[Rfam]
RNA sequence: CGAAUCGCGACGGGAGAGCUCGUCGGACGGUCCCCCGGGAACGGCCGACGGCGCCGAAGGAGCAAACCCUCCCCGGGAAUCUCUCAGGCCCCGUACCGUCGCGACGAG
Numbered sequence: 001c002g003a004a005u006c007g008c009g010a011c012g013g014g015a016g017a018g019c020u021c022g023u024c025g026g027a028c029g030g031u032c033c034c035c036c037g038g039g040a041a042c043g044g045c046c047g048a049c050g051g052c053g054c055c056g057a058a059g060g061a062g063c064a065a066a067c068c069c070u071c072c073c074c075g076g077g078a079a080u081c082u083c084u085c086a087g088g089c090c091c092c093g094u095a096c097c098g099u100c101g102c103g104a105c106g107a108g
Stems, first nucleotide, its partner, number of pairs: 006103008020051007053089003056085002060083003067075001